[Rfam]
RNA sequence: AUCAUCUGCUCUGGUUCGCUGUCGUCGACAGCACCUGCCCACGUGGUCGCGAUCUUUGAGGCCACGGUGUGCGCAUGCACAUUGAUCGCCUGAAGUUCGCUCAGUAUUCGGAAGCGCGAACAGUCGACGAUGCCCUCGCCGACCGAAUAC
Numbered sequence: 001a002u003c004a005u006c007u008g009c010u011c012u013g014g015u016u017c018g019c020u021g022u023c024g025u026c027g028a029c030a031g032c033a034c035c036u037g038c039c040c041a042c043g044u045g046g047u048c049g050c051g052a053u054c055u056u057u058g059a060g061g062c063c064a065c066g067g068u069g070u071g072c073g074c075a076u077g078c079a080c081a082u083u084g085a086u087c088g089c090c091u092g093a094a095g096u097u098c099g100c101u102c103a104g105u106a107u108u109c110g111g112a113a114g115c116g117c118g119a120a121c122a123g124u125c126g127a128c129g130a131u132g133c134c135c136u137c138g139c140c141g142a143c144c145g146a147a148u149a150c
Stems, first nucleotide, its partner, number of pairs: 011037001013035003018032006043065006051087004066083007116150001118148001123143004128138003
RNA: radC RNA